[Rfam]
RNA sequence: GCGCUGCUACCGCCGAAUCCACGGGACGCAGCCGGCGUCCCAUGGAGCCGGGGACCCGACCGGAACCGCCCUGGGCCGGCAGGAGCGUAGGCUCCGUCAGACCCAGCGGAGGGUGCCCCCCGGGGUGAAUCCACGUCCGGUGCGUCCCUGGGGGACGUUCGGGGCGCGGUAGGGCUGCUCCCCGCCCGAACCCGCCAGCUAACCCGGUAGGCGGACGAGGAGAGGAGAG
Dot-bracket structure: ..........((((...(((.......................)))((((((....((..............................................................))(((.....((.(((((.......................))))).))..((((........))))...))).........)))))).))))................
Shown here is a 229-nucleotide RNA from Thermomonospora umbrina, a member of the family "c-di-AMP riboswitch aptamer (ydaO/yuaA leader)".